[Rfam]
RNA: mir-515 microRNA precursor family
RNA sequence: UCUCCUGCUGUGACCCUCAAGAUGGAAGCAGUUUCUGUUGUCUGAAAGGAAAGAAAGUGCUUCCUUUUUGAGGGUUACUGUUUGAGA
Numbered sequence: 001u002c003u004c005c006u007g008c009u010g011u012g013a014c015c016c017u018c019a020a021g022a023u024g025g026a027a028g029c030a031g032u033u034u035c036u037g038u039u040g041u042c043u044g045a046a047a048g049g050a051a052a053g054a055a056a057g058u059g060c061u062u063c064c065u066u067u068u069u070g071a072g073g074g075u076u077a078c079u080g081u082u083u084g085a086g087a
Base pairs, nucleotide, nucleotide: 001087002086003085004084007081008080010078011077012076013075014074016072017071018070020068021067022066024064025063026062027061028060029059030058032056033055034054035053038052039051